[Rfam]
RNA sequence: GGAAGGAAGCUCACUGUAGAGGCUACAUGCAGAGUGCAUAUGUCACUCAAGUACCUUGGGGAAGGUCUGAGACAGGAGCCGGUAAUUGCCCCAGCAGGGCAUCCCCUGAAAAGGGGAGCGAGCUCCCAGAGACCCGGGGCCCAAAGGGGGUGGCAUGAGACGCGUGACCGUGUAUCUGGUACUCGCUGAUGCUUACUCCUUCCGGGCAUUGGAAGUGGCUCGCGGCUGGCACUCCCCUGAGUGCAAUGGCUGAGGUGAGGUAAUGGCGCCUCAUAACCCAAUUCAGACCACUCUCCGGAAUUCC
Numbered sequence: 001g002g003a004a005g006g007a008a009g010c011u012c013a014c015u016g017u018a019g020a021g022g023c024u025a026c027a028u029g030c031a032g033a034g035u036g037c038a039u040a041u042g043u044c045a046c047u048c049a050a051g052u053a054c055c056u057u058g059g060g061g062a063a064g065g066u067c068u069g070a071g072a073c074a075g076g077a078g079c080c081g082g083u084a085a086u087u088g089c090c091c092c093a094g095c096a097g098g099g100c101a102u103c104c105c106c107u108g109a110a111a112a113g114g115g116g117a118g119c120g121a122g123c124u125c126c127c128a129g130a131g132a133c134c135c136g137g138g139g140c141c142c143a144a145a146g147g148g149g150g151u152g153g154c155a156u157g158a159g160a161c162g163c164g165u166g167a168c169c170g171u172g173u174a175u176c177u178g179g180u181a182c183u184c185g186c187u188g189a190u191g192c193u194u195a196c197u198c199c200u201u202c203c204g205g206g207c208a209u210u211g212g213a214a215g216u217g218g219c220u221c222g223c224g225g226c227u228g229g230c231a232c233u234c235c236c237c238u239g240a241g242u243g244c245a246a247u248g249g250c251u252g253a254g255g256u257g258a259g260g261u262a263a264u265g266g267c268g269c270c271u272c273a274u275a276a277c278c279c280a281a282u283u284c285a286g287a288c289c290a291c292u293c294u295c296c297g298g299a300a301u302u303c304c
Stems, first nucleotide, its partner, number of pairs: 001304004005296003010254004015249001019057004032048005037042001067286005077227004087101005102117006118223007139207002255274007
Shown here is a 304-nucleotide sequence, a member of the family "Nuclear RNase P". Rfam's curators write: Ribonuclease P (RNase P) is a ubiquitous endoribonuclease, found in archaea, bacteria and eukarya as well as chloroplasts and mitochondria. Its best characterised activity is the generation of mature 5'-ends of tRNAs by cleaving the 5'-leader elements of precursor-tRNAs. Cellular RNase Ps are ribonucleoproteins. RNA from bacterial RNase Ps retains its catalytic activity in the absence of the protein subunit, i.e. it is a ribozyme. Isolated eukaryotic and archaeal RNase P RNA has not been shown to retain its catalytic function, but is still essential for the catalytic activity of the holoenzyme. Although the archaeal and eukaryotic holoenzyme s have a much greater protein content than the bacterial ones, the RNA cores from all the three lineages are homologous -- helices corresponding to P1, P2, P3, P4, and P10/11 are common to all cellular RNase P RNAs. Yet, there is considerable sequence variation, particularly among the eukaryotic RNAs. It is annotated as a ribozyme. Pairs were carried over by alignment from the consensus structure, which is taken from published work.